[Rfam]
Shown here is a 77-nucleotide sequence from Alligator sinensis, a member of the family "Mammalian CPEB3 ribozyme". Pairs were carried over by alignment from the consensus structure, which is taken from published work. Taxonomically the source falls in Alligator (Eukaryota, Tetrapoda, Amniota, Crocodylia). Its family is annotated with RNA nuclease activity in the Gene Ontology.
RNA sequence: UGCUGCAAGUCUGAGGCCACGGCAGAAGCGCUCACAGUGUGGCGCCGUCAAAUUCCAACAAAUCUGCAAAUUCUGCU
Numbered sequence: 001u002g003c004u005g006c007a008a009g010u011c012u013g014a015g016g017c018c019a020c021g022g023c024a025g026a027a028g029c030g031c032u033c034a035c036a037g038u039g040u041g042g043c044g045c046c047g048u049c050a051a052a053u054u055c056c057a058a059c060a061a062a063u064c065u066g067c068a069a070a071u072u073c074u075g076c077u
Base pairs, nucleotide, nucleotide: 013045016043017042018041021077022076023075024074025073026072027071028040029039030038049066050065052063053062054061
Dot-bracket structure: ............[..[[[..((((((((((.......)))]]].]...((.(((......))).))....)))))))